Rfam assigns this 66-nucleotide sequence from Camphora micrantha to the family "Small nucleolar RNA U49".
The literature on the family includes a 2001 paper in RNA by Brown et al., "Multiple snoRNA gene clusters from Arabidopsis".
It scores 54 bits against the family's covariance model.
The family's RNA type in Rfam is C/D-box small nucleolar RNA.
RNA sequence: ACCCAAUGAGGAAAUACACCCAUUGAUAGGAAGUGCCGUAUGACACUUCACAGCAGCAGUAGCAAA
Numbered sequence: 001a002c003c004c005a006a007u008g009a010g011g012a013a014a015u016a017c018a019c020c021c022a023u024u025g026a027u028a029g030g031a032a033g034u035g036c037c038g039u040a041u042g043a044c045a046c047u048u049c050a051c052a053g054c055a056g057c058a059g060u061a062g063c064a065a066a
Base pairs, nucleotide, nucleotide: 014060015059030049031048032047033046034045035044